Rfam assigns this 67-nucleotide RNA from Pipistrellus kuhlii to the family "mir-9256 microRNA precursor family". Its family is annotated with RISC complex and miRNA-mediated post-transcriptional gene silencing in the Gene Ontology. The family's consensus secondary structure was predicted with RNAalifold. It scores 81 bits against the family's covariance model.

[Rfam]
RNA sequence: AAAUACAUUGAGUGGCCAGAUUAUUAUGAUCUCUGAACACAUAGUAAUUUGGCCACUCAGUGUAAAU
Numbered sequence: 001a002a003a004u005a006c007a008u009u010g011a012g013u014g015g016c017c018a019g020a021u022u023a024u025u026a027u028g029a030u031c032u033c034u035g036a037a038c039a040c041a042u043a044g045u046a047a048u049u050u051g052g053c054c055a056c057u058c059a060g061u062g063u064a065a066a067u
Stems, first nucleotide, its partner, number of pairs: 004064014019049010